[Rfam]
RNA sequence: AAAUGUUACAACUCACUCAUUCCCGAUAGGAUUCACUAUCUAGUGAAGAUGCCUUGUAACCAUAAAAAUGAACUGGGGGAAUUUACUGUG
Numbered sequence: 001a002a003a004u005g006u007u008a009c010a011a012c013u014c015a016c017u018c019a020u021u022c023c024c025g026a027u028a029g030g031a032u033u034c035a036c037u038a039u040c041u042a043g044u045g046a047a048g049a050u051g052c053c054u055u056g057u058a059a060c061c062a063u064a065a066a067a068a069u070g071a072a073c074u075g076g077g078g079g080a081a082u083u084u085a086c087u088g089u090g
Base pairs, nucleotide, nucleotide: 020081021080022079023078024077028054029053030052032047033046034045035044036043060076061075
This 90-nucleotide RNA from Ligilactobacillus apodemi belongs to the Rfam family "SAM-III riboswitch aptamer (SMK box)". For this family Rfam cites "S-adenosylmethionine directly inhibits binding of 30S ribosomal subunits to the SMK box translational riboswitch RNA" (Fuchs et al., Proc Natl Acad Sci U S A, 2007). The family's consensus secondary structure is taken from published work. Gene Ontology terms of the family: regulation of translational initiation and methionine adenosyltransferase activity.